[Rfam]
Nucleotides: 068
Base pairs, nucleotide, nucleotide: 003066004065005063007062008061009060010059011058013056014055018051019050020049021048022047025045026044027043028042
Number, partner (000 for none) and nucleotide at each position: 001000a002000g003066a004065u005063a006000a007062c008061u009060g010059a011058u012000c013056u014055c015000c016000u017000u018051u019050g020049g021048u022047g023000c024000u025045u026044a027043g028042a029000g030000u031000c032000c033000c034000u035000g036000c037000a038000g039000c040000c041000u042028u043027c044026u045025a046000g047022c048021a049020c050019c051018a052000u053000u054000u055014g056013a057000a058011a059010u060009c061008g062007g063005u064000u065004a066003u067000a068000a

The family of this 68-nucleotide sequence from Gouania willdenowi is "mir-29 microRNA precursor family".
Rfam describes the family as follows. This family represents the microRNA (miRNA) precursors mir-29.
A search with the family's covariance model found it, with a score of 56 bits.
Rfam links the family to the GO terms gene silencing by miRNA and RISC complex.
Pairs were carried over by alignment from the consensus structure, which was predicted with PFOLD.